Shown here is a 118-nucleotide sequence from a Peptococcaceae bacterium, a member of the family "Group II catalytic intron D1-D4-2". The base pairs follow the family's consensus structure. It scores 122 bits against the family's covariance model. Rfam 15.1 lists 1,231 matches to the family in 625 species.
RNA sequence: GGGGGAAGGCCCCUCGGAGCCGCCAUACAGGUGGAGGCUUCAAACCACCUUAAGCUGCUGUGGUCAAGAGCCAUGGUGGUGAGCGUUAAGGAAAAGUCGGGGCAGGACCUCGACAGGU
Number, nucleotide and partner (000 for none) at each position: 001g015002g014003g013004g012005g011006a000007a000008g000009g000010c000011c005012c004013c003014u002015c001016g041017g040018a039019g038020c037021c036022g000023c034024c033025a032026u031027a000028c000029a000030g000031g026032u025033g024034g023035a000036g021037g020038c019039u018040u017041c016042a000043a000044a000045c000046c117047a000048c091049c090050u089051u088052a087053a086054g080055c079056u000057g077058c076059u075060g000061u073062g072063g071064u070065c000066a000067a000068g000069a000070g064071c063072c062073a061074u000075g059076g058077u057078g000079g055080u054081g000082a000083g000084c000085g000086u053087u052088a051089a050090g049091g048092a000093a000094a000095a000096g114097u113098c112099g111100g110101g109102g000103c000104a000105g000106g000107a000108c000109c101110u100111c099112g098113a097114c096115a000116g000117g046118u000